[Rfam]
RNA: SAM riboswitch aptamer (S box leader)
RNA sequence: AUCUUAUCAAGAGAGGCAGAGGGACUGGCCCUGUGACGCCCAGCAACCGGUAUGGAACACGGUGCUAAUUCCAGCAGAGUCUGUUUACUCUGGGAGAUAAGAA
Numbered sequence: 001a002u003c004u005u006a007u008c009a010a011g012a013g014a015g016g017c018a019g020a021g022g023g024a025c026u027g028g029c030c031c032u033g034u035g036a037c038g039c040c041c042a043g044c045a046a047c048c049g050g051u052a053u054g055g056a057a058c059a060c061g062g063u064g065c066u067a068a069u070u071c072c073a074g075c076a077g078a079g080u081c082u083g084u085u086u087a088c089u090c091u092g093g094g095a096g097a098u099a100a101g102a103a
Stems, first nucleotide, its partner, number of pairs: 002102007013041001015040003021031003025074004042066004047062002049058001051056001070095001075092006